[Rfam]
RNA sequence: ACUGGAGGACUAAUCAGACCGAGUCUGAAGAGUGAGACUUGGGUGACAGCAGCCUCCUAAGAGAAAAGGGAUGGAGAGAGCAGCCCACCUUAGAGAAAAGCGAAGGGCUGACUGCGCCAUCUGACAUGU
Numbered sequence: 001a002c003u004g005g006a007g008g009a010c011u012a013a014u015c016a017g018a019c020c021g022a023g024u025c026u027g028a029a030g031a032g033u034g035a036g037a038c039u040u041g042g043g044u045g046a047c048a049g050c051a052g053c054c055u056c057c058u059a060a061g062a063g064a065a066a067a068g069g070g071a072u073g074g075a076g077a078g079a080g081c082a083g084c085c086c087a088c089c090u091u092a093g094a095g096a097a098a099a100g101c102g103a104a105g106g107g108c109u110g111a112c113u114g115c116g117c118c119a120u121c122u123g124a125c126a127u128g129u
Stems, first nucleotide, its partner, number of pairs: 002061002004057005017044001019042001021040006068122003079113002081110006091102001